[Rfam]
RNA sequence: ACAGGUUCUGAUUACUGACGGAUAAAUGUGGAGUACCACAGGGGAAUCAGAAUAAGAUAAUAAGCCGACCGUCUGGGCAACAUUU
Number, nucleotide and partner (000 for none) at each position: 001a000002c000003a000004g000005g053006u052007u051008c050009u049010g048011a047012u046013u000014a000015c043016u042017g073018a072019c071020g070021g069022a000023u000024a000025a000026a000027u000028g039029u038030g037031g036032a000033g000034u000035a000036c031037c030038a029039c028040a000041g000042g016043g015044g000045a000046a012047u011048c010049a009050g008051a007052a006053u005054a000055a000056g000057a000058u000059a000060a000061u000062a000063a000064g078065c077066c076067g000068a000069c021070c020071g019072u018073c017074u000075g000076g066077g065078c064079a000080a000081c000082a000083u000084u000085u000
RNA: ZMP/ZTP riboswitch aptamer (pfl RNA motif)